[Rfam]
The record is a 402-nucleotide RNA from Lachancea waltii, which matches "Fungal signal recognition particle RNA" in Rfam. NCBI's taxonomy places the organism under Eukaryota, Opisthokonta, Saccharomycotina, Saccharomycetaceae, Lachancea. It is annotated as a non-coding RNA gene. The base pairs follow the family's consensus structure, which is taken from published work.

RNA sequence: UCACUGUAACGGUCGACAGUGGAACUGUAUUUUCCGAGAUUUCUGACCUGGGUUCAAACCCUGCGGUCGGACGUGUUACGCUUUAAGCCUCUUUCGGGAGGUUGCUACACGCUCAGUCUAACAAUCGAGUCGACGUGCCCUGGUAACAAAUCGAUCCUUGCGGGCAGUCCAGGGCGAGAUGUGAGAAGUCCGUCUUGUACCUGGUACGGCAAUGGUAGGCGAGGGUGCUUAACGCUAACCCGUCUCUUGUGCUCCUAUCGCUGAAGGGGAGUUUCAUCCAGCACAGCAAGAGCAACCCGUGAUGGAGGCGACUGGGAUUACACUUGUCCUCGUAUAAGGGAUUUAUCCCUUCGUUGUGGGCGUGAAUCUCAUCCUAUGGAAUGUGAAGAUACUAGAACCCUG
Numbered sequence: 001u002c003a004c005u006g007u008a009a010c011g012g013u014c015g016a017c018a019g020u021g022g023a024a025c026u027g028u029a030u031u032u033u034c035c036g037a038g039a040u041u042u043c044u045g046a047c048c049u050g051g052g053u054u055c056a057a058a059c060c061c062u063g064c065g066g067u068c069g070g071a072c073g074u075g076u077u078a079c080g081c082u083u084u085a086a087g088c089c090u091c092u093u094u095c096g097g098g099a100g101g102u103u104g105c106u107a108c109a110c111g112c113u114c115a116g117u118c119u120a121a122c123a124a125u126c127g128a129g130u131c132g133a134c135g136u137g138c139c140c141u142g143g144u145a146a147c148a149a150a151u152c153g154a155u156c157c158u159u160g161c162g163g164g165c166a167g168u169c170c171a172g173g174g175c176g177a178g179a180u181g182u183g184a185g186a187a188g189u190c191c192g193u194c195u196u197g198u199a200c201c202u203g204g205u206a207c208g209g210c211a212a213u214g215g216u217a218g219g220c221g222a223g224g225g226u227g228c229u230u231a232a233c234g235c236u237a238a239c240c241c242g243u244c245u246c247u248u249g250u251g252c253u254c255c256u257a258u259c260g261c262u263g264a265a266g267g268g269g270a271g272u273u274u275c276a277u278c279c280a281g282c283a284c285a286g287c288a289a290g291a292g293c294a295a296c297c298c299g300u301g302a303u304g305g306a307g308g309c310g311a312c313u314g315g316g317a318u319u320a321c322a323c324u325u326g327u328c329c330u331c332g333u334a335u336a337a338g339g340g341a342u343u344u345a346u347c348c349c350u351u352c353g354u355u356g357u358g359g360g361c362g363u364g365a366a367u368c369u370c371a372u373c374c375u376a377u378g379g380a381a382u383g384u385g386a387a388g389a390u391a392c393u394a395g396a397a398c399c400c401u402g
Stems, first nucleotide, its partner, number of pairs: 001015001003013002017402003021399002027392007036370003040366002112360004119356003127331003131326003135323003139316005144310001155306003158301001161299004165209001167207002169204005174198008183190002224229001250294005260287004268279003
Dot-bracket structure: (.((.......)).).(((.((....(((((((..(((.((......................................................................((((...(((.....(((.(((.(((.((((((..........((((..(((((.(((((((((((((((.((....)))))))))).))))).)).)..............(....)....................(((((.....((((....(((......)))....))))..))))).)))).)..)))...).)))))....))))))..)))......................)))))))....)).)))...............))))))).....)))))

Rfam 15.1 lists 748 matches to the family in 741 species.